This 87-nucleotide RNA sequence from Bacillus taeanensis belongs to the Rfam family "BsrC". It scores 39 bits against the family's covariance model. The base pairs follow the family's consensus structure, which was predicted with CMfinder. The 301 nucleotide sequence from Kouji Nakamura has been trimmed to a highly conserved ~85 nucleotide long core to form this family. For this family Rfam cites "Novel small RNA-encoding genes in the intergenic regions of Bacillus subtilis" (Saito et al., Gene, 2008).

[Rfam]
RNA sequence: AAAACCUUAGAUGGCAGAACCCCUACCUCUGUCCCGCUCUUACGGCUCCUUGGCCGCGCCAGUACCAGUACCGAUCUCGUCUGGUAC
Numbered sequence: 001a002a003a004a005c006c007u008u009a010g011a012u013g014g015c016a017g018a019a020c021c022c023c024u025a026c027c028u029c030u031g032u033c034c035c036g037c038u039c040u041u042a043c044g045g046c047u048c049c050u051u052g053g054c055c056g057c058g059c060c061a062g063u064a065c066c067a068g069u070a071c072c073g074a075u076c077u078c079g080u081c082u083g084g085u086a087c
Base pairs, nucleotide, nucleotide: 036065039062040061041058043056044055045054046053047052